[Rfam]
RNA: Group II catalytic intron D1-D4-3
RNA sequence: UCCAUCGCGAGGUGGAAUCUGAAGGAAGCCGGAUGGCAAACCUCUGGUCUGACGAACAGAAAUCACAUAAGAGGCUAGGCAUGAGGAUAAGGCUGCCUUACAAGUCGAAGUCCAAUAACUACACAGAAUCAUGUUUGGUAAAUGUGGCAGAUAGGUGGAGGGAAGGAACGUGUG
Dot-bracket structure: ((((((....)))))).............((.....(...(((((((((((...........((((((.....(((.(((((((((((..((((........))))...))))...............))))))).)))..)))))))))))...))))))....)....))..